[Rfam]
RNA sequence: UUGACCGAGUAGUCCCAGAGCGCGUCGCUCUGCCGGACGGCCUCGUCGCCGAGGUGGUCGCCGUCGGCCAGCACGCCGAGCACGGUGGUGUGGCCGUACUUGCCGCUGCCGAUCUUGUUGACCUUGCCGUGCGCGAUCAGGAACACCUCCUCGAUCGGCUGCCCGGCCUCGACGAGCACCUCACCGGCCGCGAAGUCCCGCUGGGUGAACCGGCCCGCCAGCUCCUCCAGCACCGCGUCGUCCUCGAAGCCGCGCAGCACGGGCACCUCGCGCAGCGACGGCGGAACGAUCCUGACCUCCGCACCGGUCUUCACAAAGCUCACCCGGCCGCGCCCGACCGCAUAACUGAGCCGGCGGUUCACCCGGUAGGUACCACCGGAGACCUGCACCCACGGCAGCAUCUUGAGCAGCCAGCGGGAGCUGAUGCCCUGCAUCUGCGGCUCGGACUUGGUGGUCGUGGCCAGAUUCCGAGCGCCGGCCGUGCCGAGGCUGGUCUGCUGCCGGUUCUG
Dot-bracket structure: ......(.((((..(..(...(..(.(.(.(....((.((((..(..((.((.((..(.(..(.((((......(.((((.(((((......))))).)))))....)))).....((((.(....(.((((.((....(..((....(...(.((((.((..((.......))..)).....)))).)..)..)))....)).))..)).)....).)))).)..).)..))..((..(((.((...((((....((...(......).....))..)))).))..)))..))...)).))..))))).))...).).).).)...).(((......))).........((((.((...(((.....))).)).)))).)..)))).).((.((((.((..((..(.......).))...)).)))).)).....(..(.(((((.(((((.......)))))..))))).)..)((.((..(.(((......)).).).))...)).
Numbered sequence: 001u002u003g004a005c006c007g008a009g010u011a012g013u014c015c016c017a018g019a020g021c022g023c024g025u026c027g028c029u030c031u032g033c034c035g036g037a038c039g040g041c042c043u044c045g046u047c048g049c050c051g052a053g054g055u056g057g058u059c060g061c062c063g064u065c066g067g068c069c070a071g072c073a074c075g076c077c078g079a080g081c082a083c084g085g086u087g088g089u090g091u092g093g094c095c096g097u098a099c100u101u102g103c104c105g106c107u108g109c110c111g112a113u114c115u116u117g118u119u120g121a122c123c124u125u126g127c128c129g130u131g132c133g134c135g136a137u138c139a140g141g142a143a144c145a146c147c148u149c150c151u152c153g154a155u156c157g158g159c160u161g162c163c164c165g166g167c168c169u170c171g172a173c174g175a176g177c178a179c180c181u182c183a184c185c186g187g188c189c190g191c192g193a194a195g196u197c198c199c200g201c202u203g204g205g206u207g208a209a210c211c212g213g214c215c216c217g218c219c220a221g222c223u224c225c226u227c228c229a230g231c232a233c234c235g236c237g238u239c240g241u242c243c244u245c246g247a248a249g250c251c252g253c254g255c256a257g258c259a260c261g262g263g264c265a266c267c268u269c270g271c272g273c274a275g276c277g278a279c280g281g282c283g284g285a286a287c288g289a290u291c292c293u294g295a296c297c298u299c300c301g302c303a304c305c306g307g308u309c310u311u312c313a314c315a316a317a318g319c320u321c322a323c324c325c326g327g328c329c330g331c332g333c334c335c336g337a338c339c340g341c342a343u344a345a346c347u348g349a350g351c352c353g354g355c356g357g358u359u360c361a362c363c364c365g366g367u368a369g370g371u372a373c374c375a376c377c378g379g380a381g382a383c384c385u386g387c388a389c390c391c392a393c394g395g396c397a398g399c400a401u402c403u404u405g406a407g408c409a410g411c412c413a414g415c416g417g418g419a420g421c422u423g424a425u426g427c428c429c430u431g432c433a434u435c436u437g438c439g440g441c442u443c444g445g446a447c448u449u450g451g452u453g454g455u456c457g458u459g460g461c462c463a464g465a466u467u468c469c470g471a472g473c474g475c476c477g478g479c480c481g482u483g484c485c486g487a488g489g490c491u492g493g494u495c496u497g498c499u500g501c502c503g504g505u506u507c508u509g
Stems, first nucleotide, its partner, number of pairs: 007389001009387004015381001018328001022324001025322001027320001029318001031316001036312002039309004045305001048302002051299002054233002058229001060227001063224001065111004075103001077102004082097005117222004122217001127212001129210002131206002134203002140197001143196002149192001153189001155187004160178002164174002236294002240290003244285002249282004257276002262269001330341003351379004356374002361371003391431002394428004399423002403418002407415001437476001440473001442471005448464005477508002480503002484500001486498001487496002